About this RNA: The family of this 129-nucleotide sequence from Toxostoma redivivum is "Small nucleolar RNA SNORA9".
RNA sequence: CCGCAGUGUCCAGCAUGGGGGGGCCUGGCGUGGCCCCUGCCAUUCCUGUAGCGCUGCCAGAGCACCCCGGGGCCGUUUGAGGCCGCUCCCGGCGCUUCCCGGGGGCGGUUAUAGAAUCCCCGGACAUGC
Numbered sequence: 001c002c003g004c005a006g007u008g009u010c011c012a013g014c015a016u017g018g019g020g021g022g023g024c025c026u027g028g029c030g031u032g033g034c035c036c037c038u039g040c041c042a043u044u045c046c047u048g049u050a051g052c053g054c055u056g057c058c059a060g061a062g063c064a065c066c067c068c069g070g071g072g073c074c075g076u077u078u079g080a081g082g083c084c085g086c087u088c089c090c091g092g093c094g095c096u097u098c099c100c101g102g103g104g105g106c107g108g109u110u111a112u113a114g115a116a117u118c119c120c121c122g123g124a125c126a127u128g129c
Stems, first nucleotide, its partner, number of pairs: 003057005016042003021036005068122005083108006090101003
A search with the family's covariance model found it, with a score of 94 bits. NCBI's taxonomy places the organism under Eukaryota, Sarcopterygii, Aves, Australaves, Toxostoma. ACA9 is a member of the H/ACA class of snoRNA that guide the sites of modification of uridines to pseudouridines.